This 40-nucleotide RNA from Ureibacillus massiliensis belongs to the Rfam family "Ribosomal protein L19 leader".
[Rfam]
RNA sequence: ACGGUGUUCCGCUGUAGUGAAAUGACUAUAUGAGCAUCUG
Numbered sequence: 001a002c003g004g005u006g007u008u009c010c011g012c013u014g015u016a017g018u019g020a021a022a023u024g025a026c027u028a029u030a031u032g033a034g035c036a037u038c039u040g
Base pairs, nucleotide, nucleotide: 003038004037005036006035007034008033009032013030014029015028016027017026018025
From the family's description: This family is a putative r-protein leader autoregulatory structure found in B. subtilis and other low-GC Gram-positive bacteria. It is located in the 5' untranslated regions of mRNAs encoding ribosomal protein L19 (rplS). For this family Rfam cites "Diverse mechanisms for regulating ribosomal protein synthesis in Escherichia coli" (Zengel and Lindahl, Prog Nucleic Acid Res Mol Biol, 1994).